[Rfam]
RNA sequence: UGGUAGAUGCACCCUAAUUAAUUCUUGCCCUCAGUCUCAAACAGACUGGGGUUUUUUAUU
Numbered sequence: 001u002g003g004u005a006g007a008u009g010c011a012c013c014c015u016a017a018u019u020a021a022u023u024c025u026u027g028c029c030c031u032c033a034g035u036c037u038c039a040a041a042c043a044g045a046c047u048g049g050g051g052u053u054u055u056u057u058a059u060u
Stems, first nucleotide, its partner, number of pairs: 002013003027052004032048005
The record is a 60-nucleotide sequence from Cyanomargarita calcarea, which matches "Nitrogen stress-induced RNA 1" in Rfam. The family's RNA type in Rfam is small RNA. The match comes from Rfam's covariance-model search (44 bits).